[Rfam]
RNA sequence: AGGGUUGUGAGGAGUUAAAGAGCGAAAUAGAAAAGCAGAAAAGCCUUUGGAGUCGAAACACGGACAGACGCCCAGGGGUUUUUCUCUUUU
Numbered sequence: 001a002g003g004g005u006u007g008u009g010a011g012g013a014g015u016u017a018a019a020g021a022g023c024g025a026a027a028u029a030g031a032a033a034a035g036c037a038g039a040a041a042a043g044c045c046u047u048u049g050g051a052g053u054c055g056a057a058a059c060a061c062g063g064a065c066a067g068a069c070g071c072c073c074a075g076g077g078g079u080u081u082u083u084c085u086c087u088u089u090u
Stems, first nucleotide, its partner, number of pairs: 037085005044078002049073002052069003